[Rfam]
RNA: Small nucleolar RNA snoR99
RNA sequence: UUGCAAUUGAGGUUAUGCUUGUCCCCACAUCAAUUUUUCAUUCUAUUAACUUUGUCAGCUGGACUUUAUUACCUGCAGCUGAUUUUCAUGAAUGGAAUAUCG
Number, nucleotide and partner (000 for none) at each position: 001u000002u000003g000004c000005a000006a000007u000008u000009g000010a000011g000012g000013u000014u000015a000016u000017g000018c000019u000020u000021g000022u000023c000024c000025c000026c000027a000028c000029a000030u000031c000032a000033a000034u000035u000036u000037u096038u095039c094040a093041u092042u091043c000044u000045a000046u000047u000048a000049a000050c000051u000052u000053u000054g083055u082056c081057a080058g079059c078060u077061g076062g000063a000064c000065u000066u000067u000068a000069u000070u000071a000072c000073c000074u000075g000076c061077a060078g059079c058080u057081g056082a055083u054084u000085u000086u000087c000088a000089u000090g000091a042092a041093u040094g039095g038096a037097a000098u000099a000100u000101c000102g000